[Rfam]
About this RNA: This 63-nucleotide RNA sequence from Synechococcus sp. CC9902 belongs to the Rfam family "Cyano-1 RNA". The sequence is in the family's curated seed alignment. Pairs were carried over by alignment from the consensus structure, which is taken from published work.
RNA sequence: CAUGAGGUGAGGAUAAAAACUUACGGGGUGGAAACAAGGCCACACUCCCACUGAGUUUUCGGA
Numbered sequence: 001c002a003u004g005a006g007g008u009g010a011g012g013a014u015a016a017a018a019a020c021u022u023a024c025g026g027g028g029u030g031g032a033a034a035c036a037a038g039g040c041c042a043c044a045c046u047c048c049c050a051c052u053g054a055g056u057u058u059u060c061g062g063a
Stems, first nucleotide, its partner, number of pairs: 016059007025049003028045003